[Rfam]
RNA sequence: CAAAAUGGCCUUUCAGGCAUCCUCUCCUAAGACUUUAGGCCGGUCCUCUGGACCGGCCUUUUUUUUCGCCGCC
Numbered sequence: 001c002a003a004a005a006u007g008g009c010c011u012u013u014c015a016g017g018c019a020u021c022c023u024c025u026c027c028u029a030a031g032a033c034u035u036u037a038g039g040c041c042g043g044u045c046c047u048c049u050g051g052a053c054c055g056g057c058c059u060u061u062u063u064u065u066u067c068g069c070c071g072c073c
Base pairs, nucleotide, nucleotide: 008018009017010016011015038058039057040056041055042054043053044052045051046050
The record is a 73-nucleotide RNA from Rhizorhapis suberifaciens, which matches "Makes More Granules Regulator RNA (mmgR)" in Rfam. The organism belongs to Rhizorhapis, within Bacteria. SuhB later renamed mmgR (makes more granules regulator) was a putative non-coding RNA found multiple times in the Agrobacterium tumefaciens genome and related alpha-proteobacteria. A search with the family's covariance model found it, with a score of 55 bits. The base pairs follow the family's consensus structure.